Notes: The family of this 63-nucleotide RNA sequence from Salmo salar is "mir-459 microRNA precursor family". The source organism's lineage runs through Eukaryota, Vertebrata, Teleostomi, Teleostei and Salmo.

RNA sequence: UCAGUAACAAGGAUUCAUCCUGUUGUUGUAUUCUGAACUAGCAGGGAAUCUCUGUUACUGGGG
Number, nucleotide and partner (000 for none) at each position: 001u061002c060003a059004g058005u057006a056007a055008c054009a053010a000011g051012g050013a049014u048015u047016c046017a000018u000019c045020c044021u043022g042023u041024u040025g039026u000027u000028g000029u036030a000031u000032u000033c000034u000035g000036a029037a000038c000039u025040a024041g023042c022043a021044g020045g019046g016047a015048a014049u013050c012051u011052c000053u009054g008055u007056u006057a005058c004059u003060g002061g001062g000063g000